[Rfam]
Record summary: Rfam assigns this 128-nucleotide RNA sequence from Peribacillus muralis to the family "TPP riboswitch aptamer (THI element)".

RNA sequence: UUGUACCACUAGGGGUGCUUUAUUGGUAAAUCCCAUUUUACCUGAGAAGCUGAGAUUAAAGAAUGACUUUAAGACCCUUGGAACCUGAUCUGGUUUAAACCAGCGUAGGGAAGUGGGGUCUGGGACGA
Numbered sequence: 001u002u003g004u005a006c007c008a009c010u011a012g013g014g015g016u017g018c019u020u021u022a023u024u025g026g027u028a029a030a031u032c033c034c035a036u037u038u039u040a041c042c043u044g045a046g047a048a049g050c051u052g053a054g055a056u057u058a059a060a061g062a063a064u065g066a067c068u069u070u071a072a073g074a075c076c077c078u079u080g081g082a083a084c085c086u087g088a089u090c091u092g093g094u095u096u097a098a099a100c101c102a103g104c105g106u107a108g109g110g111a112a113g114u115g116g117g118g119u120c121u122g123g124g125a126c127g128a
Base pairs, nucleotide, nucleotide: 006116007115008114009113010112011078012077013076014075016072017050018049019048020047021046057071058070059069060068061067084109085108086107087106090103091102092101093100

Annotation:
A search with the family's covariance model found it, with a score of 82 bits. The family's consensus secondary structure is taken from published work.